[Rfam]
Shown here is an 81-nucleotide RNA, a member of the family "skipping-rope RNA". Rfam's curators put it in the seed alignment.
RNA sequence: UUGUUCUGAGGUCGGAAAUGGUUCCCGACACACUCUGAAAGGAGUACCUGAGAUGAUGGAUACACCGCCCAUCCUUAACAG
Numbered sequence: 001u002u003g004u005u006c007u008g009a010g011g012u013c014g015g016a017a018a019u020g021g022u023u024c025c026c027g028a029c030a031c032a033c034u035c036u037g038a039a040a041g042g043a044g045u046a047c048c049u050g051a052g053a054u055g056a057u058g059g060a061u062a063c064a065c066c067g068c069c070c071a072u073c074c075u076u077a078a079c080a081g
Stems, first nucleotide, its partner, number of pairs: 001081005008074001011029005019067004031050001032045004055073005